[Rfam]
RNA sequence: UUCUUAUCUAGAGAGGCGGAGGGACUGGCCCUGCGAAGCCUCGGCAACAGACUUUUAGGAGUACUGUGCCAAUUCCAGUAGCGAAUGCUUGAAGAUAAGAA
Numbered sequence: 001u002u003c004u005u006a007u008c009u010a011g012a013g014a015g016g017c018g019g020a021g022g023g024a025c026u027g028g029c030c031c032u033g034c035g036a037a038g039c040c041u042c043g044g045c046a047a048c049a050g051a052c053u054u055u056u057a058g059g060a061g062u063a064c065u066g067u068g069c070c071a072a073u074u075c076c077a078g079u080a081g082c083g084a085a086u087g088c089u090u091g092a093a094g095a096u097a098a099g100a101a
Base pairs, nucleotide, nucleotide: 001101002100003099004098005097006096007095008094013042014041015040016039017038021031022030023029025078026077027076028075043070044069045068046067048066049065051062052061053060054059074093080089081088082087